[Rfam]
RNA sequence: AGCACCUAAAAGCGUUUUCUUGCCAGCCCAAUAAAUGCUCUCGAAAAUCGUAGAUGUGUGCCAUAGCAAGGCUCAGUUGCAAGUGAUUCUGCCCCAUCAAUGGCAGCAGGAUCACCAUAAGCUGGCUACAGAU
Dot-bracket structure: .(((((.....((((((((..((.(..........)))....))))).)))....).))))...........(((((...(.(..((((.((((.......))..)).))))...).)..)))))........

The record is a 133-nucleotide RNA sequence from Drosophila persimilis, which matches "Small nucleolar RNA psi28S-3316" in Rfam. By type it is an H/ACA-box small nucleolar RNA. About the family: psi28S-3316 is a member of the H/ACA class of snoRNA. This family is responsible for guiding the modification of uridine 3316 in Drosophila 28S rRNA to pseudouridine. The source organism's lineage runs through Eukaryota, Metazoa, Neoptera, Eremoneura and Sophophora. The sequence is in the family's curated seed alignment.